[Rfam]
RNA sequence: ACCCAAGCACAAGAAUCGCUUUUUCGCAGCUCACGCACUGGAUGGCGUCAAACGCCCAUCUCUUCCCGCGCUGUGGGUAGAAAGUCCCCGGAGCCUCCCCCGCCUCACUUCCUCCUCUCUUUCUCUCCACGCUGUUCCCCCAACACCCGUUUCUUCAAGCCUUCUGAUCCUUCCUCUUCCUUCACCUUUCCCUUUCCUUCCACCCUCUUCCUCUAUGCCGAAGCUUCUACGCUGGGAAAGCGCUGUAUCUAAGACUACAGAUAGGCGGGUCGCGAGGCUGGAAGAUGGGAAUGGGCUCGGGUAUAUGGGGUGUUGAGAGAGUUUGGGGAUAGGGUUCCUGAGUCUCGGGUGCGAGGUUCGGCCGACUUUGGCAUACCAAACAGGCAUCUUCUCUUCCUUUUACCGCUACCGGUUCAUCCGAGUGUUUCGAGGGUCGAGUGUCUGGCCGAGGUCUGAGCUUGAGGGUCUCUUCUUUCAGUCUUUCGAUUUCAGGCGAAGAUACGAGCCUGGUUGGGUCACGGGACUGUGGAAGGGAGAGUGAGAAUAGCUGGGCGGAUGAAACGAAUGCGCUCAUAGAUAUAGUUAUGCGAUUGCCCUGUCCUCACUUCUUCUCGCCAAGAGAGUCGUGGAUGGGUAACUCGAUGGGGCUUACUCUGUGUCUUGGG
Numbered sequence: 001a002c003c004c005a006a007g008c009a010c011a012a013g014a015a016u017c018g019c020u021u022u023u024u025c026g027c028a029g030c031u032c033a034c035g036c037a038c039u040g041g042a043u044g045g046c047g048u049c050a051a052a053c054g055c056c057c058a059u060c061u062c063u064u065c066c067c068g069c070g071c072u073g074u075g076g077g078u079a080g081a082a083a084g085u086c087c088c089c090g091g092a093g094c095c096u097c098c099c100c101c102g103c104c105u106c107a108c109u110u111c112c113u114c115c116u117c118u119c120u121u122u123c124u125c126u127c128c129a130c131g132c133u134g135u136u137c138c139c140c141c142a143a144c145a146c147c148c149g150u151u152u153c154u155u156c157a158a159g160c161c162u163u164c165u166g167a168u169c170c171u172u173c174c175u176c177u178u179c180c181u182u183c184a185c186c187u188u189u190c191c192c193u194u195u196c197c198u199u200c201c202a203c204c205c206u207c208u209u210c211c212u213c214u215a216u217g218c219c220g221a222a223g224c225u226u227c228u229a230c231g232c233u234g235g236g237a238a239a240g241c242g243c244u245g246u247a248u249c250u251a252a253g254a255c256u257a258c259a260g261a262u263a264g265g266c267g268g269g270u271c272g273c274g275a276g277g278c279u280g281g282a283a284g285a286u287g288g289g290a291a292u293g294g295g296c297u298c299g300g301g302u303a304u305a306u307g308g309g310g311u312g313u314u315g316a317g318a319g320a321g322u323u324u325g326g327g328g329a330u331a332g333g334g335u336u337c338c339u340g341a342g343u344c345u346c347g348g349g350u351g352c353g354a355g356g357u358u359c360g361g362c363c364g365a366c367u368u369u370g371g372c373a374u375a376c377c378a379a380a381c382a383g384g385c386a387u388c389u390u391c392u393c394u395u396c397c398u399u400u401u402a403c404c405g406c407u408a409c410c411g412g413u414u415c416a417u418c419c420g421a422g423u424g425u426u427u428c429g430a431g432g433g434u435c436g437a438g439u440g441u442c443u444g445g446c447c448g449a450g451g452u453c454u455g456a457g458c459u460u461g462a463g464g465g466u467c468u469c470u471u472c473u474u475u476c477a478g479u480c481u482u483u484c485g486a487u488u489u490c491a492g493g494c495g496a497a498g499a500u501a502c503g504a505g506c507c508u509g510g511u512u513g514g515g516u517c518a519c520g521g522g523a524c525u526g527u528g529g530a531a532g533g534g535a536g537a538g539u540g541a542g543a544a545u546a547g548c549u550g551g552g553c554g555g556a557u558g559a560a561a562c563g564a565a566u567g568c569g570c571u572c573a574u575a576g577a578u579a580u581a582g583u584u585a586u587g588c589g590a591u592u593g594c595c596c597u598g599u600c601c602u603c604a605c606u607u608c609u610u611c612u613c614g615c616c617a618a619g620a621g622a623g624u625c626g627u628g629g630a631u632g633g634g635u636a637a638c639u640c641g642a643u644g645g646g647g648c649u650u651a652c653u654c655u656g657u658g659u660c661u662u663g664g665g
Base pairs, nucleotide, nucleotide: 002665003664004663005662006661007660008658009657010656011655014592015591016590017589018588019587024076025075026074027073028072029071030070041060042059043058044057045056082650083649084648086647087646088645089644467536468535469534472532473531474530475529476528477527481523482522483521484520492517493516494515501511502510504508594634595633596632599629
Rfam assigns this 665-nucleotide RNA from Cryptococcus amylolentus to the family "RNase MRP".
It is annotated as a ribozyme.
The literature on the family includes a 2002 paper in RNA by Li et al., "Phylogenetic analysis of the structure of RNase MRP RNA in yeasts".
NCBI's taxonomy places the organism under Eukaryota, Opisthokonta, Agaricomycotina, Cryptococcus, Cryptococcus amylolentus.
It scores 74 bits against the family's covariance model.